Rfam assigns this 129-nucleotide RNA sequence from Formicarius rufipectus to the family "Small nucleolar RNA SNORA17". Its family is annotated with nucleolus and RNA processing in the Gene Ontology.

RNA sequence: CCUGCCCCAGUUUAUGUUGCAGGCAUGGCUGCAGUGCCACGUUUGUGUCAUUUGGUGGCAGAGAGGACAAGGUGAGGUCUUCCCCUUGUGCUCUGACCCACGGGGCCUCCCAGGAUUGCUCAACAGCCU
Numbered sequence: 001c002c003u004g005c006c007c008c009a010g011u012u013u014a015u016g017u018u019g020c021a022g023g024c025a026u027g028g029c030u031g032c033a034g035u036g037c038c039a040c041g042u043u044u045g046u047g048u049c050a051u052u053u054g055g056u057g058g059c060a061g062a063g064a065g066g067a068c069a070a071g072g073u074g075a076g077g078u079c080u081u082c083c084c085c086u087u088g089u090g091c092u093c094u095g096a097c098c099c100a101c102g103g104g105g106c107c108u109c110c111c112a113g114g115a116u117u118g119c120u121c122a123a124c125a126g127c128c129u
Stems, first nucleotide, its partner, number of pairs: 002061005007055004014048002019046004024041001026039004068126001071124001073122004081115003088109001090106004

From the family's description: snoRNA ACA 17 belongs to the H/ACA family of snoRNAs and is predicted to guide pseudouridylation of the 28S rRNA at positions U4659 and U4598. It shares the same host gene together with ACA43. NB This family has a high threshold value to exclude a large number of closely related sequences that do not appear to have conserved H and ACA boxes, and may be pseudogenes. A search with the family's covariance model found it, with a score of 64 bits.